[Rfam]
RNA sequence: UUUGUUUUGAAAAGAAGAAGUGAUAGUAUGAUCAUUUAUAAAAUGAACAGAGGUAUAUAGAUUUGCAGAGAUAUCGUUUCAGUCGCUCAUUUGUUUGAUUAGCGAUCUGAUUGUUGCUCUUCUACAU
Numbered sequence: 001u002u003u004g005u006u007u008u009g010a011a012a013a014g015a016a017g018a019a020g021u022g023a024u025a026g027u028a029u030g031a032u033c034a035u036u037u038a039u040a041a042a043a044u045g046a047a048c049a050g051a052g053g054u055a056u057a058u059a060g061a062u063u064u065g066c067a068g069a070g071a072u073a074u075c076g077u078u079u080c081a082g083u084c085g086c087u088c089a090u091u092u093g094u095u096u097g098a099u100u101a102g103c104g105a106u107c108u109g110a111u112u113g114u115u116g117c118u119c120u121u122c123u124a125c126a127u
Stems, first nucleotide, its partner, number of pairs: 006040001008038004013032001016029001018027001065122001067120004073111004082106006090098002
Small nucleolar RNA snoR111: a 127-nucleotide sequence from Kingdonia uniflora.
Lineage of the source: Eukaryota > Viridiplantae > Spermatophyta > Ranunculales > Kingdonia.
Pairs were carried over by alignment from the consensus structure, which was predicted with WAR.
Gene Ontology terms of the family: RNA processing and nucleolus.
The family has 6 seed sequences and 533 matches in Rfam 15.1.
It is annotated as an H/ACA-box small nucleolar RNA.
On this family, see Marker et al., Curr Biol 2002: "Experimental RNomics: identification of 140 candidates for small non-messenger RNAs in the plant Arabidopsis thaliana".